[Rfam]
RNA sequence: GGAGGUGAGAGCGAUCUGGCUGCAACAGCUGUCACCCCAUGGAUCGCCAGCAUUGAUUCGGCUGAUCUGGCUGGUGAGGGGGGUGUCUUCUUCCUCCCUCCCCACUCCAUGUGUACCCCUCCUGAAGCUGCACACUCAGUCCAAGACGACCUUCCCCGAUAGAGACGCACCAAGGGUCAAGGGUACAGGGAAGCUGUGCUCUCCUGCUAGAGCCUCCAAACAACUGAUACUUAAAAACUGUUUUGAAUUUCAGAGGCAAAGUGCCCUCUCUCUCAAAAAAAAAAAAAUUUAAAUUUGACUUGGUGCACAGUAAGAUUU
Numbered sequence: 001g002g003a004g005g006u007g008a009g010a011g012c013g014a015u016c017u018g019g020c021u022g023c024a025a026c027a028g029c030u031g032u033c034a035c036c037c038c039a040u041g042g043a044u045c046g047c048c049a050g051c052a053u054u055g056a057u058u059c060g061g062c063u064g065a066u067c068u069g070g071c072u073g074g075u076g077a078g079g080g081g082g083g084u085g086u087c088u089u090c091u092u093c094c095u096c097c098c099u100c101c102c103c104a105c106u107c108c109a110u111g112u113g114u115a116c117c118c119c120u121c122c123u124g125a126a127g128c129u130g131c132a133c134a135c136u137c138a139g140u141c142c143a144a145g146a147c148g149a150c151c152u153u154c155c156c157c158g159a160u161a162g163a164g165a166c167g168c169a170c171c172a173a174g175g176g177u178c179a180a181g182g183g184u185a186c187a188g189g190g191a192a193g194c195u196g197u198g199c200u201c202u203c204c205u206g207c208u209a210g211a212g213c214c215u216c217c218a219a220a221c222a223a224c225u226g227a228u229a230c231u232u233a234a235a236a237a238c239u240g241u242u243u244u245g246a247a248u249u250u251c252a253g254a255g256g257c258a259a260a261g262u263g264c265c266c267u268c269u270c271u272c273u274c275a276a277a278a279a280a281a282a283a284a285a286a287a288u289u290u291a292a293a294u295u296u297g298a299c300u301u302g303g304u305g306c307a308c309a310g311u312a313a314g315a316u317u318u
Base pairs, nucleotide, nucleotide: 001108002107003106005102007100008099009098011096013093014092018090019089025086026085027084029082030081032079033078035074036073037070038069039068042067043066044065045064046062047061048060117167119164120163121162122139123138124137125136127135140159141158148154149153193262194261195260199256200255205254215247217245220243222242223241224240285318286317287316289313290312291311294309296307297306
The family of this 318-nucleotide RNA from Stercorarius parasiticus is "7SK RNA".
It is annotated as a non-coding RNA gene.
The organism belongs to Stercorarius, within Eukaryota.
7SK was discovered as an abundant small nuclear RNA in the mid-70s but a possible function has only recently been suggested. Two independent studies have found that 7SK RNA binds the CDK9/cyclin T complex (known as elongation factor P-TEFb). P-TEFb activates transcription by phosphorylating the C-terminal domain of RNA polymerase II. This process is negatively regulated by the 7SK RNP. The secondary structure of 7SK RNA shown here was proposed by Wasserman and Steitz on the basis of chemical modification and enzymatic cleavage experiments.
The family's consensus secondary structure is taken from published work.